[Rfam]
RNA sequence: GACUUAUCAAGAGAGGUGGAGGGACUGGCCCGUUGAAACCCAGCAACCAAUAUAUUAUCAUAUAUGUGGUGCUAAAUCCUGCAGUAGAAGAACUGAUAGAUAAGGU
Dot-bracket structure: (.((((((....(.(((...(((.[.[[)))......))))((((.((.((((........))))..))))))...(]].]((((......))))..))))))).)
A member of the RNA family "SAM riboswitch aptamer (S box leader)" from Clostridium uliginosum, 106 nucleotides long. Gene Ontology term of the family: regulation of gene expression. Lineage of the source: Bacteria > Bacillati > Bacillota > Clostridiaceae > Clostridium. The family's consensus secondary structure is taken from published work.